[Rfam]
Nucleotides: 143
Base pairs, nucleotide, nucleotide: 028055029054030053031052032051034043035042036041103128104127105126106125107124108123109122110121111120112119
Number, partner (000 for none) and nucleotide at each position: 001000u002000g003000a004000a005000a006000a007000a008000a009000c010000c011000a012000u013000a014000a015000a016000a017000u018000a019000c020000c021000g022000u023000a024000g025000a026000c027000a028055g029054u030053a031052g032051g033000u034043g035042c036041c037000u038000u039000a040000g041036g042035g043034c044000u045000u046000a047000a048000u049000u050000u051032c052031c053030u054029g055028c056000c057000g058000a059000g060000g061000u062000g063000u064000a065000u066000g067000a068000g069000a070000u071000a072000u073000a074000a075000a076000a077000g078000u079000g080000a081000a082000u083000u084000g085000u086000u087000u088000c089000a090000a091000u092000u093000c094000c095000u096000u097000u098000u099000c100000a101000u102000a103128c104127c105126c106125c107124u108123a109122u110121g111120u112119c113000u114000a115000c116000g117000c118000a119112g120111g121110c122109a123108u124107a125106g126105g127104g128103g129000u130000u131000u132000u133000u134000a135000u136000u137000g138000c139000a140000c141000c142000u143000u